Source information
A member of the RNA family "pemK RNA" from Helcococcus ovis, 65 nucleotides long. The family's consensus secondary structure is taken from published work. It scores 39 bits against the family's covariance model.
RNA sequence: AUAAUGAUAUUUCAAUAGUUUAAGCUGGCUCGUCUAAAUAAGGGGCGGUGGUUAGAUUCCAAUGU
Numbered sequence: 001a002u003a004a005u006g007a008u009a010u011u012u013c014a015a016u017a018g019u020u021u022a023a024g025c026u027g028g029c030u031c032g033u034c035u036a037a038a039u040a041a042g043g044g045g046c047g048g049u050g051g052u053u054a055g056a057u058u059c060c061a062a063u064g065u
Stems, first nucleotide, its partner, number of pairs: 012062001013024001025048003029044003049061003